[Rfam]
RNA sequence: AUUAAUUUGGGCGAUGGAGUCCGCCUUUAAUAGCCAUGAGGCUGAUGACUCCUACAGGUUG
Numbered sequence: 001a002u003u004a005a006u007u008u009g010g011g012c013g014a015u016g017g018a019g020u021c022c023g024c025c026u027u028u029a030a031u032a033g034c035c036a037u038g039a040g041g042c043u044g045a046u047g048a049c050u051c052c053u054a055c056a057g058g059u060u061g
Stems, first nucleotide, its partner, number of pairs: 010025004016052006033042003

The family of this 61-nucleotide sequence from Pseudothermotoga thermarum is "Fluoride riboswitch aptamer (crcB RNA motif)".
NCBI's taxonomy places the organism under Bacteria, Thermotogati, Thermotogae, Thermotogaceae, Pseudothermotoga thermarum.